[Rfam]
The family of this 140-nucleotide RNA from Phaetusa simplex is "Small Cajal body specific RNA 11".

RNA sequence: GCGUCCUGACCUCAUCCUAGCUGCUCCCCUCACCGGAGUUGUGGUGGUGGGGUCUGGGGGUGGACGCAGAUCAACUUGCCUCUCAUGUUAGGAGGGCUGCCAAAGACAUGUGCAAGCCCUUAAAGGCAAGAGAGGACACU
Numbered sequence: 001g002c003g004u005c006c007u008g009a010c011c012u013c014a015u016c017c018u019a020g021c022u023g024c025u026c027c028c029c030u031c032a033c034c035g036g037a038g039u040u041g042u043g044g045u046g047g048u049g050g051g052g053u054c055u056g057g058g059g060g061u062g063g064a065c066g067c068a069g070a071u072c073a074a075c076u077u078g079c080c081u082c083u084c085a086u087g088u089u090a091g092g093a094g095g096g097c098u099g100c101c102a103a104a105g106a107c108a109u110g111u112g113c114a115a116g117c118c119c120u121u122a123a124a125g126g127c128a129a130g131a132g133a134g135g136a137c138a139c140u
Stems, first nucleotide, its partner, number of pairs: 002066005010059002023053003028049001030047004079135006088125002092121007099113002101110002

For this family Rfam cites "Cajal body-specific small nuclear RNAs: a novel class of 2'-O-methylation and pseudouridylation guide RNAs" (Darzacq et al., EMBO J, 2002). From the family's description: scaRNAs are a specific class of small nuclear RNAs which localise to the Cajal bodies and guide the modification of RNA polymerase II transcribed spliceosomal RNAs U1, U2, U4, U5 and U12. Rfam classes the family as a small Cajal body RNA.